[Rfam]
RNA sequence: UGGCAACGAUGAUGACAGGAGUUGUAACUGUAGGAAUGUUUCAUCAGUGCAUGGAGACACCAGUCCCUCUAAACUGAUGUUGCCA
Numbered sequence: 001u002g003g004c005a006a007c008g009a010u011g012a013u014g015a016c017a018g019g020a021g022u023u024g025u026a027a028c029u030g031u032a033g034g035a036a037u038g039u040u041u042c043a044u045c046a047g048u049g050c051a052u053g054g055a056g057a058c059a060c061c062a063g064u065c066c067c068u069c070u071a072a073a074c075u076g077a078u079g080u081u082g083c084c085a
Stems, first nucleotide, its partner, number of pairs: 001085007
Dot-bracket structure: (((((((.......................................................................)))))))